Shown here is a 173-nucleotide RNA from Candidatus Colimorpha enterica, a member of the family "Lysine riboswitch aptamer". Taxonomically the source falls in Candidatus Colimorpha (Bacteria, Bacteroidota, Bacteroidia, Bacteroidales). Pairs were carried over by alignment from the consensus structure, which is taken from published work.
RNA sequence: UACUGUGAUAGAGGCGCGGUUAUAAUCAGUAGUGCGUGAGACACCCACGGGAGGGUACGCACGAAAGGUAUCGCCGCCGAAGUGCCGUUCUCACCCGAAUGCGGGCGGUGCUGGGGUCGUACAGAAUAUGUGCGGGACUGUCAUCCGGAAUCGGAUGGAGGGCUGUCAUGGAU
Numbered sequence: 001u002a003c004u005g006u007g008a009u010a011g012a013g014g015c016g017c018g019g020u021u022a023u024a025a026u027c028a029g030u031a032g033u034g035c036g037u038g039a040g041a042c043a044c045c046c047a048c049g050g051g052a053g054g055g056u057a058c059g060c061a062c063g064a065a066a067g068g069u070a071u072c073g074c075c076g077c078c079g080a081a082g083u084g085c086c087g088u089u090c091u092c093a094c095c096c097g098a099a100u101g102c103g104g105g106c107g108g109u110g111c112u113g114g115g116g117u118c119g120u121a122c123a124g125a126a127u128a129u130g131u132g133c134g135g136g137a138c139u140g141u142c143a144u145c146c147g148g149a150a151u152c153g154g155a156u157g158g159a160g161g162g163c164u165g166u167c168a169u170g171g172a173u
Base pairs, nucleotide, nucleotide: 006168007167008166009165010164011163016077017076018075019074020073022071023070024069032062033061034060035059036058037057038056081112082111083110084109085108086107087106088105089104090103092101113139114138117135118134119133120132121131122130123129141158142157143156144155145154146153147152